[Rfam]
RNA sequence: UCCUUCUCAUGAGCUCCUCUUAGUCUUACCCAUGAUUGUGCACGGAUUCGCACGAGAAGCAGAGCCAAAGCACAGUUAGAACAGGCCUGCCCCGUCUUCAUGUGGGCGUCGCUUAUGUCUGCUGUGCAACAAGU
Numbered sequence: 001u002c003c004u005u006c007u008c009a010u011g012a013g014c015u016c017c018u019c020u021u022a023g024u025c026u027u028a029c030c031c032a033u034g035a036u037u038g039u040g041c042a043c044g045g046a047u048u049c050g051c052a053c054g055a056g057a058a059g060c061a062g063a064g065c066c067a068a069a070g071c072a073c074a075g076u077u078a079g080a081a082c083a084g085g086c087c088u089g090c091c092c093c094g095u096c097u098u099c100a101u102g103u104g105g106g107c108g109u110c111g112c113u114u115a116u117g118u119c120u121g122c123u124g125u126g127c128a129a130c131a132a133g134u
Stems, first nucleotide, its partner, number of pairs: 003059006013051002015046003021038005070127006090105002093102002
Dot-bracket structure: ..((((((....(((((...(((((........))))).....)))...))..))))))..........((((((..............((.((......)).))................)))))).......

The family of this 134-nucleotide RNA from Stegastes partitus is "Small nucleolar RNA SNORA75". Gene Ontology terms of the family: nucleolus and RNA processing. From the family's description: U23 belongs to the H/ACA class of snoRNAs. snoRNAs bind a number of proteins (including dyskerin, Gar1p and Nop10p in the case of the H/ACA class) to form snoRNP complexes. This class are thought to guide the sites of modification of uridines to pseudouridines by forming direct base pairing interactions with substrate RNAs. Targets include ribosomal and spliceosomal RNAs as well as the Trypanosoma spliced leader RNA (SL RNA) as possibly other, still unknown cellular RNAs. U23 can direct the pseudouridylation of U97 in human 18S rRNA (Bachellerie JP, Ganot, P unpublished data). The organism belongs to Stegastes, within Eukaryota. For this family Rfam cites "The family of box ACA small nucleolar RNAs is defined by an evolutionarily conserved secondary structure and ubiquitous sequence elements essential for RNA accumulation" (Ganot et al., Genes Dev, 1997). The family has 6 seed sequences and 414 matches in Rfam 15.1. It scores 84 bits against the family's covariance model.